[Rfam]
RNA: raiA RNA
RNA sequence: CUCAUCCAGGUCUGUGGUUGCGGGCGGCCGCGCGCCGCCCUAUUCCAUGCCAGACGAGGGCAAAGGGAUCCACGUAAGUCCGUGCGCGCGUGCGGGCGAUCAUGGCUCGUCCUAGAGGUAAGUCGUACCGCCCGUCAUACACUGAGGCAUCCCGCCUCGCGGGCGAGAGGGGCUACAGUGCGGGCGCCCGGGCGUCCGACGCGACGUCCCCGGUGCGCGAGUGUGGGGUCAAAGACCAGGUCAGCUGGGUGAG
Numbered sequence: 001c002u003c004a005u006c007c008a009g010g011u012c013u014g015u016g017g018u019u020g021c022g023g024g025c026g027g028c029c030g031c032g033c034g035c036c037g038c039c040c041u042a043u044u045c046c047a048u049g050c051c052a053g054a055c056g057a058g059g060g061c062a063a064a065g066g067g068a069u070c071c072a073c074g075u076a077a078g079u080c081c082g083u084g085c086g087c088g089c090g091u092g093c094g095g096g097c098g099a100u101c102a103u104g105g106c107u108c109g110u111c112c113u114a115g116a117g118g119u120a121a122g123u124c125g126u127a128c129c130g131c132c133c134g135u136c137a138u139a140c141a142c143u144g145a146g147g148c149a150u151c152c153c154g155c156c157u158c159g160c161g162g163g164c165g166a167g168a169g170g171g172g173c174u175a176c177a178g179u180g181c182g183g184g185c186g187c188c189c190g191g192g193c194g195u196c197c198g199a200c201g202c203g204a205c206g207u208c209c210c211c212g213g214u215g216c217g218c219g220a221g222u223g224u225g226g227g228g229u230c231a232a233a234g235a236c237c238a239g240g241u242c243a244g245c246u247g248g249g250u251g252a253g
Base pairs, nucleotide, nucleotide: 001253002252003251004250005249006248007247008246009245012244013243014242015238016237017236018235019234047224048223049222050060053111054110055109056108057107058106069105070104074100079095080094103231124217125216126215127214128213129165130164131163132162133161134160135159169210170209171208172207178202179201185194186193187192